[Rfam]
RNA sequence: UUUGGGUGCAUUGUAGUUGCAUUGCAUGGAUACAUAACAGUGCAGUGUCUCUUCAGUGCAACCUAA
Numbered sequence: 001u002u003u004g005g006g007u008g009c010a011u012u013g014u015a016g017u018u019g020c021a022u023u024g025c026a027u028g029g030a031u032a033c034a035u036a037a038c039a040g041u042g043c044a045g046u047g048u049c050u051c052u053u054c055a056g057u058g059c060a061a062c063c064u065a066a
Base pairs, nucleotide, nucleotide: 001066002065004063006062007060008059009058010057011056012055013054015052016051019048021046022045023044024043025042026041027040
RNA: mir-33 microRNA precursor family
Organism: Brassicogethes aeneus